A member of the RNA family "Caenorhabditis snoRNA ceN28", 88 nucleotides long. Gene Ontology terms of the family: RNA processing and nucleolus. The base pairs follow the family's consensus structure. It scores 91 bits against the family's covariance model.
[Rfam]
RNA sequence: CACGUCUGGUGAUGCUAAAAAAGGUCUGGUUUCGCUAAAACAACAGCCGAACGAGAACAUGUCGAGAUACCUUGGCUGUCUGAGGACG
Numbered sequence: 001c002a003c004g005u006c007u008g009g010u011g012a013u014g015c016u017a018a019a020a021a022a023g024g025u026c027u028g029g030u031u032u033c034g035c036u037a038a039a040a041c042a043a044c045a046g047c048c049g050a051a052c053g054a055g056a057a058c059a060u061g062u063c064g065a066g067a068u069a070c071c072u073u074g075g076c077u078g079u080c081u082g083a084g085g086a087c088g
Stems, first nucleotide, its partner, number of pairs: 003088004